This 286-nucleotide RNA from Medicago sativa belongs to the Rfam family "Early nodulin 40".
Pairs were carried over by alignment from the consensus structure, which is taken from published work.
Gene Ontology term of the family: nodulation.
[Rfam]
RNA sequence: AUGAAGCUUCUUUGUUGGCAAAAAUCAAUCCAUGGUUCUUAAAACAAACAUGGAGAGAAGUGUGAGAGGGUAUUAAACAAAAACCCUACACACUCUCCCUCCAUUUUCCUAAACAGUUUGCUUUGUGCUUUAGCUUUUGGCUUCUCAUAUCACAAAGGGAUUAUGCUUUUUUCUGAGUAGCAGAAGCAAAUAAUUAAGUAUUUUUCUCCAAAGGAUCAGAAGCUUUUGUUAUAGCAUGGCAAACCGGCAAGUCACAAAAAGGCAAUGGAUUCCUUUUUGGAGUCUU
Numbered sequence: 001a002u003g004a005a006g007c008u009u010c011u012u013u014g015u016u017g018g019c020a021a022a023a024a025u026c027a028a029u030c031c032a033u034g035g036u037u038c039u040u041a042a043a044a045c046a047a048a049c050a051u052g053g054a055g056a057g058a059a060g061u062g063u064g065a066g067a068g069g070g071u072a073u074u075a076a077a078c079a080a081a082a083a084c085c086c087u088a089c090a091c092a093c094u095c096u097c098c099c100u101c102c103a104u105u106u107u108c109c110u111a112a113a114c115a116g117u118u119u120g121c122u123u124u125g126u127g128c129u130u131u132a133g134c135u136u137u138u139g140g141c142u143u144c145u146c147a148u149a150u151c152a153c154a155a156a157g158g159g160a161u162u163a164u165g166c167u168u169u170u171u172u173c174u175g176a177g178u179a180g181c182a183g184a185a186g187c188a189a190a191u192a193a194u195u196a197a198g199u200a201u202u203u204u205u206c207u208c209c210a211a212a213g214g215a216u217c218a219g220a221a222g223c224u225u226u227u228g229u230u231a232u233a234g235c236a237u238g239g240c241a242a243a244c245c246g247g248c249a250a251g252u253c254a255c256a257a258a259a260a261g262g263c264a265a266u267g268g269a270u271u272c273c274u275u276u277u278u279g280g281a282g283u284c285u286u
Base pairs, nucleotide, nucleotide: 062101116244117243118242119241120240121239135234136233268284269283270282271281272280